Overview: The record is a 264-nucleotide RNA sequence from Dimargaris verticillata, which matches "ACEA small nucleolar RNA U3" in Rfam. Small nucleolar RNAs (snoRNAs) are involved in the processing and modification of rRNA in the nucleolus. There are two main classes of snoRNAs: the box C/D class, and the box H/ACA class. U3 snoRNA is a member of the box C/D class. Indeed, the box C/D element is a subset of the six short sequence elements found in all U3 snoRNAs, namely boxes A, A', B, C, C', and D. The U3 snoRNA secondary structure is characterised by a small 5' domain (with boxes A and A'), and a larger 3' domain (with boxes B, C, C', and D), the two domains being linked by a single-stranded hinge. It is annotated as a C/D-box small nucleolar RNA. For this family Rfam cites "Comparative analysis of eukaryotic U3 snoRNA" (Marz and Stadler, RNA Biol, 2010). The family's consensus secondary structure is taken from published work. Rfam links the family to the GO terms RNA processing and nucleolus.

[Rfam]
Nucleotides: 264
Base pairs, nucleotide, nucleotide: 001040003038008033009032010031011030015027016026017025044067047065049063050062051061074263075262076261077260078259093251094250095249096248097247098245099244100243101242102241103240107164108163109162110161118151119150166236167235168234169233171231
Number, partner (000 for none) and nucleotide at each position: 001040g002000c003038g004000a005000c006000c007000g008033u009032a010031c011030u012000u013000c014000c015027a016026u017025g018000g019000a020000u021000c022000a023000u024000g025017u026016a027015u028000a029000u030011a031010g032009u033008a034000c035000a036000u037000a038003u039000a040001c041000u042000u043000g044067u045000u046000c047065u048000c049063g050062c051061g052000g053000a054000u055000a056000a057000u058000a059000c060000g061051u062050g063049u064000c065047a066000a067044a068000u069000c070000u071000a072000a073000g074263g075262g076261c077260u078259g079000g080000u081000u082000g083000a084000u085000g086000a087000u088000u089000g090000g091000u092000a093251g094250u095249g096248c097247a098245c099244c100243a101242u102241c103240u104000g105000u106000a107164a108163a109162g110161g111000g112000a113000g114000g115000c116000u117000g118151u119150g120000c121000u122000g123000g124000u125000c126000u127000g128000g129000u130000g131000c132000g133000g134000c135000u136000u137000u138000g139000g140000c141000u142000g143000c144000c145000c146000g147000g148000g149000u150119c151118a152000g153000a154000u155000c156000g157000a158000u159000g160000a161110u162109c163108u164107u165000g166236c167235u168234c169233a170000g171231g172000u173000c174000u175000u176000u177000a178000u179000a180000u181000g182000c183000u184000c185000g186000c187000c188000u189000u190000c191000c192000u193000g194000u195000g196000g197000g198000u199000u200000g201000c202000u203000u204000c205000g206000g207000c208000g209000c210000c211000a212000u213000g214000g215000g216000u217000u218000g219000g220000u221000u222000u223000g224000u225000a226000g227000c228000g229000g230000c231171c232000u233169u234168g235167a236166g237000c238000g239000a240103g241102g242101a243100u244099g245098g246000c247097u248096g249095c250094a251093c252000a253000a254000u255000c256000u257000g258000a259078c260077g261076g262075c263074c264000u